[Rfam]
RNA sequence: CUCCUCGAAAUAGUUUUUGGACUAGCCUGGAGCGUUAAACCAGAGAGGUAGAGCACUGGAUAGUUUAGCGGGUGUAACCCACUUUGCAAUGCUAACCAAACUCCGAAUUCUCUGGCGUAUUUCUCCGGAGUCAGUACGUGUGGGAUAAGCUUCACGUGCAAAAGGGAAACAGCCCAGACCAUCAAUUAAGGUCCCUAAAUAUAUGCUAAGUGGUAAAGGAUGUGGAAUUUCUUAGACAGCUAGGAGGUUGGCUUAGAAGCAGCCAUCCUUUAAAGAGUGCGUAACAGCUCACUAGUCGAGUGAUUCUGCGCCGAAGACACCCGGGGCUCAAGCAUAUUACCGAAAUUAUGGAUUCUAUAGCAAUAUAGAGUGGUAGAGGAGCGUUCCUGCCGCGCUGAAGGUAUACCGUAAGGAGUACUGGAGUUGCAGGAAGUGAGAAU
Numbered sequence: 001c002u003c004c005u006c007g008a009a010a011u012a013g014u015u016u017u018u019g020g021a022c023u024a025g026c027c028u029g030g031a032g033c034g035u036u037a038a039a040c041c042a043g044a045g046a047g048g049u050a051g052a053g054c055a056c057u058g059g060a061u062a063g064u065u066u067a068g069c070g071g072g073u074g075u076a077a078c079c080c081a082c083u084u085u086g087c088a089a090u091g092c093u094a095a096c097c098a099a100a101c102u103c104c105g106a107a108u109u110c111u112c113u114g115g116c117g118u119a120u121u122u123c124u125c126c127g128g129a130g131u132c133a134g135u136a137c138g139u140g141u142g143g144g145a146u147a148a149g150c151u152u153c154a155c156g157u158g159c160a161a162a163a164g165g166g167a168a169a170c171a172g173c174c175c176a177g178a179c180c181a182u183c184a185a186u187u188a189a190g191g192u193c194c195c196u197a198a199a200u201a202u203a204u205g206c207u208a209a210g211u212g213g214u215a216a217a218g219g220a221u222g223u224g225g226a227a228u229u230u231c232u233u234a235g236a237c238a239g240c241u242a243g244g245a246g247g248u249u250g251g252c253u254u255a256g257a258a259g260c261a262g263c264c265a266u267c268c269u270u271u272a273a274a275g276a277g278u279g280c281g282u283a284a285c286a287g288c289u290c291a292c293u294a295g296u297c298g299a300g301u302g303a304u305u306c307u308g309c310g311c312c313g314a315a316g317a318c319a320c321c322c323g324g325g326g327c328u329c330a331a332g333c334a335u336a337u338u339a340c341c342g343a344a345a346u347u348a349u350g351g352a353u354u355c356u357a358u359a360g361c362a363a364u365a366u367a368g369a370g371u372g373g374u375a376g377a378g379g380a381g382c383g384u385u386c387c388u389g390c391c392g393c394g395c396u397g398a399a400g401g402u403a404u405a406c407c408g409u410a411a412g413g414a415g416u417a418c419u420g421g422a423g424u425u426g427c428a429g430g431a432a433g434u435g436a437g438a439a440u
Stems, first nucleotide, its partner, number of pairs: 001381006011024005026130001027128006037118001040115007051104001052102002057098003061094004068087002070084005134159007142151002164175003179351004184347003190341003199338001201337006218312002222309008231300001239296005245269003250264003270274001275290001279288002352371008382435001384432007392424002400419005406413002

The record is a 440-nucleotide part of an RNA from Candidatus Endomicrobiellum trichonymphae, which matches "Bacterial large subunit ribosomal RNA" in Rfam.
The organism belongs to Candidatus Endomicrobiellum, within Bacteria.
Rfam's curators put it in the seed alignment.